[Rfam]
RNA sequence: AGGCUGUGAUGAACAACAACAUUUCUCGAAUCUGAUAAUUACAAAAGCAAAUUAUAUUUGCUUUUUGAUGACCGUGUUUGUGCGUGUCUGAGCCUC
Numbered sequence: 001a002g003g004c005u006g007u008g009a010u011g012a013a014c015a016a017c018a019a020c021a022u023u024u025c026u027c028g029a030a031u032c033u034g035a036u037a038a039u040u041a042c043a044a045a046a047g048c049a050a051a052u053u054a055u056a057u058u059u060g061c062u063u064u065u066u067g068a069u070g071a072c073c074g075u076g077u078u079u080g081u082g083c084g085u086g087u088c089u090g091a092g093c094c095u096c
Stems, first nucleotide, its partner, number of pairs: 001095004
A member of the RNA family "small nucleolar RNA snoR126", 96 nucleotides long. On this family, see Chen and Wu, Nucleic Acids Res 2009: "Mining small RNA sequencing data: a new approach to identify small nucleolar RNAs in Arabidopsis". Pairs were carried over by alignment from the consensus structure, which was predicted with RNAalifold. Its family is annotated with nucleolus and RNA processing in the Gene Ontology. The sequence is in the family's curated seed alignment.